[Rfam]
Shown here is a 302-nucleotide RNA sequence from Macrostomum lignano, a member of the family "Nuclear RNase P".
About the family: Ribonuclease P (RNase P) is a ubiquitous endoribonuclease, found in archaea, bacteria and eukarya as well as chloroplasts and mitochondria. Its best characterised activity is the generation of mature 5'-ends of tRNAs by cleaving the 5'-leader elements of precursor-tRNAs. Cellular RNase Ps are ribonucleoproteins. RNA from bacterial RNase Ps retains its catalytic activity in the absence of the protein subunit, i.e. it is a ribozyme.
The family's RNA type in Rfam is ribozyme.

RNA sequence: UCUGGAGCUCCGCUGGCAUCAAGGGGUCACUCUACGGGCGCACACAUCGCCCUUUAACAAGUCACCCUUGGGAAGGUCUGAGUUCGAGCCCCCGUAUCCCCUAGCAGGGGAGCCGCCUCUAAUCGAGGGCGCCGGCUGACAGAAACGCUUGGGCCAUUGGGCUUUGCAAGGAAGCUGGCGACCCAAUUACAGUUGGUUGCCAGCUGAGCAUUCCGAUGGAGACCCAAUUGAGACUGGGCUGGUGGCUGGCCUGUGCAGUGCAAUAUGCCUUGACAACUCAAUUCAGACUACGUAGCGCCAGA
Numbered sequence: 001u002c003u004g005g006a007g008c009u010c011c012g013c014u015g016g017c018a019u020c021a022a023g024g025g026g027u028c029a030c031u032c033u034a035c036g037g038g039c040g041c042a043c044a045c046a047u048c049g050c051c052c053u054u055u056a057a058c059a060a061g062u063c064a065c066c067c068u069u070g071g072g073a074a075g076g077u078c079u080g081a082g083u084u085c086g087a088g089c090c091c092c093c094g095u096a097u098c099c100c101c102u103a104g105c106a107g108g109g110g111a112g113c114c115g116c117c118u119c120u121a122a123u124c125g126a127g128g129g130c131g132c133c134g135g136c137u138g139a140c141a142g143a144a145a146c147g148c149u150u151g152g153g154c155c156a157u158u159g160g161g162c163u164u165u166g167c168a169a170g171g172a173a174g175c176u177g178g179c180g181a182c183c184c185a186a187u188u189a190c191a192g193u194u195g196g197u198u199g200c201c202a203g204c205u206g207a208g209c210a211u212u213c214c215g216a217u218g219g220a221g222a223c224c225c226a227a228u229u230g231a232g233a234c235u236g237g238g239c240u241g242g243u244g245g246c247u248g249g250c251c252u253g254u255g256c257a258g259u260g261c262a263a264u265a266u267g268c269c270u271u272g273a274c275a276a277c278u279c280a281a282u283u284c285a286g287a288c289u290a291c292g293u294a295g296c297g298c299c300a301g302a
Base pairs, nucleotide, nucleotide: 001302002301003300004299007296008295009294022069023068024067025066026065036052037051038050039049040048078286079285080284081283082282087247088246089245090244097111098110099109100108101107115130116129117128118127120125131243132242133241134240135239136238137237149227150226151225152224153223